[Rfam]
RNA sequence: AAAAAAAAAUUUUUUUUAAAAAAAAAAUUUUUUUUUUUUUCCCCAAAAAGGGGAAUUGGGGGUUUAAAUUUAAAAAAACCCAAAAUUUUUGUUUUUUUUUGGGGGGGGGGGGGCCCAGGGCCCCCCCCCCCAA
Dot-bracket structure: .......((((((((((.....)))))(..(((((((((.......)))))))))..).((((((..........)))))).))))).............((((.(((((.((((...)))))))))))))..
RNA: U11 spliceosomal RNA
Organism: Chionoecetes opilio